[Rfam]
RNA sequence: CUAAUGUUUCUUGCUCAAGUGAGUAUUCCAAUUUCCAACCACAGAGGCAUGCAAGUAUUGCACUGAGGAUUGAGAUGCUCACAUGAGCAAGCAGUGUUAG
Numbered sequence: 001c002u003a004a005u006g007u008u009u010c011u012u013g014c015u016c017a018a019g020u021g022a023g024u025a026u027u028c029c030a031a032u033u034u035c036c037a038a039c040c041a042c043a044g045a046g047g048c049a050u051g052c053a054a055g056u057a058u059u060g061c062a063c064u065g066a067g068g069a070u071u072g073a074g075a076u077g078c079u080c081a082c083a084u085g086a087g088c089a090a091g092c093a094g095u096g097u098u099a100g
Base pairs, nucleotide, nucleotide: 004097005096006095007094008093010091011090012089013088014087015086016085017084019082020081021080022079023078024077025076026075027074029072030071031070032069033068034067